[Rfam]
Nucleotides: 364
Stems, first nucleotide, its partner, number of pairs: 001360007021333010035320008045307005050067005059077004117139007143180006150172003154168004160194005201230001203228004208223001213243005246282004251277001258271003262299004337353005
Number, partner (000 for none) and nucleotide at each position: 001360g002359g003358g004357g005356c006355c007354g008000u009000u010000u011000u012000u013000g014000g015000a016000u017000u018000c019000g020000a021333c022332g023331g024330g025329g026328g027327u028326a029325g030324u031000u032000c033000g034000a035320g036319c037318a038317u039316g040315g041314a042313u043000a044000g045307c046306g047305a048304g049303u050067a051066g052065u053064g054063g055000g056000g057000a058000c059077g060076c061075g062074u063054c064053c065052g066051c067050u068000u069000c070000a071000u072000c073000a074062a075061c076060g077059c078000u079000a080000a081000a082000g083000c084000c085000a086000a087000u088000u089000a090000a091000a092000c093000g094000g095000c096000a097000a098000a099000c100000a101000a102000a103000a104000c105000a106000a107000c108000a109000a110000c111000u112000u113000a114000g115000c116000u117139u118138u119137c120136g121135c122134a123133g124000c125000u126000u127000a128000a129000u130000a131000a132000c133123c134122u135121g136120u137119g138118a139117g140000c141000u142000a143180g144179c145178u146177c147176c148175u149000a150172c151171c152170u153000u154168c155167c156166a157165u158000c159000g160194c161193c162192c163191a164190u165157g166156u167155g168154g169000c170152g171151g172150g173000c174000u175148a176147g177146g178145g179144g180143c181000u182000c183000a184000a185000c186000u187000u188000u189000a190164g191163u192162g193161g194160g195000a196000u197000a198000c199000g200000c201230c202000g203228u204227c205226u206225g207000g208223u209000c210000u211000c212000c213243g214242c215241c216240u217239g218000g219000g220000g221000u222000c223208a224000a225206c226205g227204g228203a229000a230201g231000a232000a233000g234000a235000u236000a237000a238000u239217c240216a241215g242214g243213c244000u245000g246282a247281c248280c249279c250000a251277a252000c253000g254000u255000a256000u257000a258271g259270c260269c261000g262299g263298u264297u265296a266000c267000g268000g269260g270259g271258c272000g273000c274000u275000a276000c277251u278000c279249g280248g281247g282246u283000g284000a285000c286000a287000u288000c289000a290000a291000a292000a293000c294000u295000g296265u297264a298263a299262c300000u301000a302000c303049a304048c305047u306046c307045g308000u309000a310000g311000a312000a313042g314041u315040c316039u317038g318037u319036g320035u321000g322000g323000c324030g325029u326028u327027g328026c329025c330024u331023u332022c333021g334000g335000a336000c337353a338352g339351g340350g341349g342000u343000u344000c345000g346000a347000c348000u349341c350340c351339c352338c353337u354007c355006g356005g357004c358003u359002c360001c361000a362000u363000a364000u